[Rfam]
RNA: Neisseria metabolic switch regulator b (RcoF1/NgncR163)
Organism: Simonsiella muelleri
RNA sequence: CCAUCUAAUCGCGAAAGUGGUUGGAUAUUUCUCCUCUAUUUCUCCUUUGUAGAUUUGGCGCAUAUUCUUAGCAGAGUAUGCGCCUUUUU
Numbered sequence: 001c002c003a004u005c006u007a008a009u010c011g012c013g014a015a016a017g018u019g020g021u022u023g024g025a026u027a028u029u030u031c032u033c034c035u036c037u038a039u040u041u042c043u044c045c046u047u048u049g050u051a052g053a054u055u056u057g058g059c060g061c062a063u064a065u066u067c068u069u070a071g072c073a074g075a076g077u078a079u080g081c082g083c084c085u086u087u088u089u
Base pairs, nucleotide, nucleotide: 003026004025005024006023007022008021009020010019011018035053036052037051038050039049058083059082060081061080062079063078064077065076066075067074